[Rfam]
RNA: mir-5918 microRNA precursor family
RNA sequence: CUGAUGGGAUAACGGGUAAUACGAUUAUGAGGCAAGCUUUUUCAAAAGCUAGCCUAUACAUCGUGUUACCCAUUGUCUCACCUC
Numbered sequence: 001c002u003g004a005u006g007g008g009a010u011a012a013c014g015g016g017u018a019a020u021a022c023g024a025u026u027a028u029g030a031g032g033c034a035a036g037c038u039u040u041u042u043c044a045a046a047a048g049c050u051a052g053c054c055u056a057u058a059c060a061u062c063g064u065g066u067u068a069c070c071c072a073u074u075g076u077c078u079c080a081c082c083u084c
Stems, first nucleotide, its partner, number of pairs: 003082001005080007014071012026058004031053001033052001035050004